A member of the RNA family "bantam microRNA precursor family" from Laodelphax striatellus, 84 nucleotides long. Its Rfam clan is "mir-81 clan". The family's consensus secondary structure was predicted with RNAalifold. Gene Ontology terms of the family: RISC complex and miRNA-mediated post-transcriptional gene silencing. A reference for the family is Weaver et al. (2007), "Computational and transcriptional evidence for microRNAs in the honey bee genome", Genome Biol. The organism belongs to Laodelphax, within Eukaryota.

[Rfam]
RNA sequence: UAUACAUUACGAAACCGGGUUUCACAGUGAUCUGCCAGAUUGAUAUUAAUUGUCUGAGAUCAUUGUGAAAGCUGAUUUUGUUGU
Numbered sequence: 001u002a003u004a005c006a007u008u009a010c011g012a013a014a015c016c017g018g019g020u021u022u023c024a025c026a027g028u029g030a031u032c033u034g035c036c037a038g039a040u041u042g043a044u045a046u047u048a049a050u051u052g053u054c055u056g057a058g059a060u061c062a063u064u065g066u067g068a069a070a071g072c073u074g075a076u077u078u079u080g081u082u083g084u
Base pairs, nucleotide, nucleotide: 009081010080011079012078013077014076016074017073018072020070021069022068023067024066025065028062029061030060031059032058033057